[Rfam]
RNA: Bacterial RNase P class A
Organism: Aeromicrobium marinum
RNA sequence: UGAGUUGGCCGGGCGGCCGCGGCGCACCCGCGAGGGGACGUCGAGGAAAGUCCGGACUCCACCGAGCACGGUGGUGGCCAACAGCCACCCACGGCGACGUGCGGGACAGUGCCACAGAGAACAGACCGCCAGCGGCCCCCUCUCCUCGGAGCGGGGGUGCGGGUAAGGGUGAAACGGUGAGGUAAGAGCUCACCAGCGCCCCGGGUGACCGGGACGGCUCGGUAAACCCCACCGGGAGCAAGACCAAGAGGGCAUCGCGGCUCCGGCGGCGGUGCCCGCGCUGACGGGCGGCUCGUCCGAUGUCAGCGGGUAGGUCGCACGAGGCGUCCAGCAAUGGGCGUCCCAGAUGGAUGGUCGCCCGGCCCGUCGCUCCGGCGGCGGGCCGACAGAAUCCGGCUUACAGGCCAGCUCAUUCG
Numbered sequence: 001u002g003a004g005u006u007g008g009c010c011g012g013g014c015g016g017c018c019g020c021g022g023c024g025c026a027c028c029c030g031c032g033a034g035g036g037g038a039c040g041u042c043g044a045g046g047a048a049a050g051u052c053c054g055g056a057c058u059c060c061a062c063c064g065a066g067c068a069c070g071g072u073g074g075u076g077g078c079c080a081a082c083a084g085c086c087a088c089c090c091a092c093g094g095c096g097a098c099g100u101g102c103g104g105g106a107c108a109g110u111g112c113c114a115c116a117g118a119g120a121a122c123a124g125a126c127c128g129c130c131a132g133c134g135g136c137c138c139c140c141u142c143u144c145c146u147c148g149g150a151g152c153g154g155g156g157g158u159g160c161g162g163g164u165a166a167g168g169g170u171g172a173a174a175c176g177g178u179g180a181g182g183u184a185a186g187a188g189c190u191c192a193c194c195a196g197c198g199c200c201c202c203g204g205g206u207g208a209c210c211g212g213g214a215c216g217g218c219u220c221g222g223u224a225a226a227c228c229c230c231a232c233c234g235g236g237a238g239c240a241a242g243a244c245c246a247a248g249a250g251g252g253c254a255u256c257g258c259g260g261c262u263c264c265g266g267c268g269g270c271g272g273u274g275c276c277c278g279c280g281c282u283g284a285c286g287g288g289c290g291g292c293u294c295g296u297c298c299g300a301u302g303u304c305a306g307c308g309g310g311u312a313g314g315u316c317g318c319a320c321g322a323g324g325c326g327u328c329c330a331g332c333a334a335u336g337g338g339c340g341u342c343c344c345a346g347a348u349g350g351a352u353g354g355u356c357g358c359c360c361g362g363c364c365c366g367u368c369g370c371u372c373c374g375g376c377g378g379c380g381g382g383c384c385g386a387c388a389g390a391a392u393c394c395g396g397c398u399u400a401c402a403g404g405c406c407a408g409c410u411c412a413u414u415c416g
Base pairs, nucleotide, nucleotide: 001412002411003410004409005408006407007406008405009404010403011401012359013358014357015356016355017354018353020043021042022041023040024039027036028035048399049398050397052396053395054394055393056392057238058237059236060235064294065293066292067291069234070233071232072231073230074088075087076086077085078084089103090101091100092099093098104229105228109227110226111223112222113221126168127167128164129163130162132160133159134158136156137155138154139153176194177193178192179191180190181189196218197216198215200213201212202211203210204209242316243315244314245313252307253306285299286298287297288296289295323342324341325340326339327338328337329336330335